The family of this 59-nucleotide RNA sequence from Cupriavidus sp. GA3-3 is "nhaA-I RNA".
The source organism's lineage runs through Bacteria, Pseudomonadati, Pseudomonadota, Burkholderiaceae and Cupriavidus.
Acidobacteria, Alphaproteobacteria, Betaproteobacteria and Gammaproteobacteria, Verrucomicrobia, cand. division NC10.
By type it is a riboswitch.
[Rfam]
RNA sequence: GGGUGUCUACGCUGCACGUCGCAGUGAGACAGGUUAAUGCGUUGGUCGGGCCGCCAACG
Numbered sequence: 001g002g003g004u005g006u007c008u009a010c011g012c013u014g015c016a017c018g019u020c021g022c023a024g025u026g027a028g029a030c031a032g033g034u035u036a037a038u039g040c041g042u043u044g045g046u047c048g049g050g051c052c053g054c055c056a057a058c059g
Base pairs, nucleotide, nucleotide: 005030006029007028008027010026011025012024013023014022040059041058042057043056044055045054046053